[Rfam]
RNA sequence: CAGGCUGUGAUGAUUGGCGCAGGGGUACGGACCUCAGCUGAGUCAUGGGAGCUGAAUGUAUGUGUUUUGCCUUUGCUUUGCAUGUGGCAAGCUGAUGGCAUUCACAUAUAUGAGACUGUUGCCUUAAUCUGAGCCUA
Numbered sequence: 001c002a003g004g005c006u007g008u009g010a011u012g013a014u015u016g017g018c019g020c021a022g023g024g025g026u027a028c029g030g031a032c033c034u035c036a037g038c039u040g041a042g043u044c045a046u047g048g049g050a051g052c053u054g055a056a057u058g059u060a061u062g063u064g065u066u067u068u069g070c071c072u073u074u075g076c077u078u079u080g081c082a083u084g085u086g087g088c089a090a091g092c093u094g095a096u097g098g099c100a101u102u103c104a105c106a107u108a109u110a111u112g113a114g115a116c117u118g119u120u121g122c123c124u125u126a127a128u129c130u131g132a133g134c135c136u137a
Stems, first nucleotide, its partner, number of pairs: 002136004